[Rfam]
RNA: azaaromatic riboswitch aptamer (yjdF RNA)
RNA sequence: AUGGGCAGGGAUAAAAACACAGCCCCGGUUGGUAGUCCGGGCGCGGCGGACCGCCGUCAGUAACCCUCCUCCUAGGUUGUCCGUUCCCUGCUCCCACAGA
Dot-bracket structure: ...((((((((..........((.((((........))))))((((((...))))))..........(((...)))........))))))))........